Rfam assigns this 115-nucleotide RNA from Mucilaginibacter paludis to the family "SAM riboswitch aptamer (S box leader)". A search with the family's covariance model found it, with a score of 81 bits. The organism belongs to Mucilaginibacter paludis, within Bacteria. The family's consensus secondary structure is taken from published work.

RNA sequence: UACUUAUCCAGAAAGACUGAGGGAAUGGCCCGAUGAAGUCUUAGCAACCUGUACAGCUCUUGCUGCUAAAAGGUGCUAACUCCUACCCCAUCAAUACGCGGGGGAAAGAUAAGUU
Numbered sequence: 001u002a003c004u005u006a007u008c009c010a011g012a013a014a015g016a017c018u019g020a021g022g023g024a025a026u027g028g029c030c031c032g033a034u035g036a037a038g039u040c041u042u043a044g045c046a047a048c049c050u051g052u053a054c055a056g057c058u059c060u061u062g063c064u065g066c067u068a069a070a071a072g073g074u075g076c077u078a079a080c081u082c083c084u085a086c087c088c089c090a091u092c093a094a095u096a097c098g099c100g101g102g103g104g105a106a107a108g109a110u111a112a113g114u115u
Stems, first nucleotide, its partner, number of pairs: 002114007013042005021031003027083002043077004048073002050070001052068002081107001086104004